Shown here is a 206-nucleotide RNA from Clostridium oryzae, a member of the family "raiA RNA". The match comes from Rfam's covariance-model search (196 bits). The base pairs follow the family's consensus structure, which is taken from published work. The source organism's lineage runs through Bacteria, Bacillota, Eubacteriales, Clostridiaceae and Clostridium.
RNA sequence: UUAAGUUAGGUUUGUGGUUGAAAGUCGAUGCCAGUCGCAGGCAAAACGAUCCACGUAAGUUAGACAAAAGGUUUAAUGAGCAUGGUGCGGCUUAGAAGUAAGUCCUGCCGUGAAAAGCGAGAAAAUUAGUAGUGAGAGGAAUAAAACCGGGUAGCGAACAUUUCAGCAGGCGAGUGUGGGGUCAAAGACCAGGUCAACUAACUUUU
Numbered sequence: 001u002u003a004a005g006u007u008a009g010g011u012u013u014g015u016g017g018u019u020g021a022a023a024g025u026c027g028a029u030g031c032c033a034g035u036c037g038c039a040g041g042c043a044a045a046a047c048g049a050u051c052c053a054c055g056u057a058a059g060u061u062a063g064a065c066a067a068a069a070g071g072u073u074u075a076a077u078g079a080g081c082a083u084g085g086u087g088c089g090g091c092u093u094a095g096a097a098g099u100a101a102g103u104c105c106u107g108c109c110g111u112g113a114a115a116a117g118c119g120a121g122a123a124a125a126u127u128a129g130u131a132g133u134g135a136g137a138g139g140a141a142u143a144a145a146a147c148c149g150g151g152u153a154g155c156g157a158a159c160a161u162u163u164c165a166g167c168a169g170g171c172g173a174g175u176g177u178g179g180g181g182u183c184a185a186a187g188a189c190c191a192g193g194u195c196a197a198c199u200a201a202c203u204u205u206u
Stems, first nucleotide, its partner, number of pairs: 003204007012197003015191005028177003031041001033092007050085002058077001060075001062073002083184001104170005109119003123163004132155002138148002